[Rfam]
RNA sequence: AGAAACAAUAUAGAAACAUUUCGUAUAACUCCAAUGAUAUGGAUUGGAGGUCUCUACCAGGAACCAAUAAAUCCUGAUUACGAAGAAGGUACAUGAAUUU
Dot-bracket structure: ..................(((((((...(((((((.......)))))))........(((((.........)))))..)))))))...............

A member of the RNA family "Purine riboswitch aptamer" from Bacillus sp. MRMR6, 100 nucleotides long.
Taxonomically the source falls in Bacillus (Bacteria, Bacillati, Caryophanales, Bacillaceae).